[Rfam]
RNA: tRNA
RNA sequence: GGCUAAGUAACAUAAGGGUAAUGUAUUGGAUUGCAAAUCCUAUAAAGAUGGUUCGAAUCCGUCCUUAGCCU
Dot-bracket structure: (((((((..((((.......)))).(.(((.......))).)....(((((.......)))))))))))).